This 87-nucleotide RNA sequence from Bacillus sp. FJAT-18017 belongs to the Rfam family "BsrC". It is annotated as a small RNA. Pairs were carried over by alignment from the consensus structure, which was predicted with CMfinder.
[Rfam]
RNA sequence: UAAAACUCAAACGACGUAAGCCCUACCUCUCUUACAUCCUUACGGCUCCGAAGCCGCGCCAGUGUGAAUAAGCCCUUAUAGAAAAAC
Numbered sequence: 001u002a003a004a005a006c007u008c009a010a011a012c013g014a015c016g017u018a019a020g021c022c023c024u025a026c027c028u029c030u031c032u033u034a035c036a037u038c039c040u041u042a043c044g045g046c047u048c049c050g051a052a053g054c055c056g057c058g059c060c061a062g063u064g065u066g067a068a069u070a071a072g073c074c075c076u077u078a079u080a081g082a083a084a085a086a087c
Stems, first nucleotide, its partner, number of pairs: 035066002039062002041058001043056005
Dot-bracket structure: ..................................((..(((.(((((....))))).)..))..)).....................
Rfam's curators write: The 301 nucleotide sequence from Kouji Nakamura has been trimmed to a highly conserved ~85 nucleotide long core to form this family.